The record is an 85-nucleotide sequence, which matches "GA-cis RNA" in Rfam. Pairs were carried over by alignment from the consensus structure, which is taken from published work.
[Rfam]
RNA sequence: UCGGGGAGGUGCCCAUGUGUCGGAGACGCAUAUCGCAUGGCACCGACGAACUGCCGCCGACCCUAGGGAGGGGGCGAUACCAGAC
Dot-bracket structure: .......((((((.((((((.....)))))).......))))))........(((.((..((...))..)).)))..........